[Rfam]
RNA sequence: UCGAGACCGUGUGCCCGAAUGCCACAGACGACCGAUAAACUGGCGAGUGGAUCGGGCCGAGCGCAGCUCUCGGCCCUUCCGUCAAUGAUCAGCCAGCAGCCGCUGCAACCCCAGGGAG
Numbered sequence: 001u002c003g004a005g006a007c008c009g010u011g012u013g014c015c016c017g018a019a020u021g022c023c024a025c026a027g028a029c030g031a032c033c034g035a036u037a038a039a040c041u042g043g044c045g046a047g048u049g050g051a052u053c054g055g056g057c058c059g060a061g062c063g064c065a066g067c068u069c070u071c072g073g074c075c076c077u078u079c080c081g082u083c084a085a086u087g088a089u090c091a092g093c094c095a096g097c098a099g100c101c102g103c104u105g106c107a108a109c110c111c112c113a114g115g116g117a118g
Stems, first nucleotide, its partner, number of pairs: 049080003054075001057073005094105004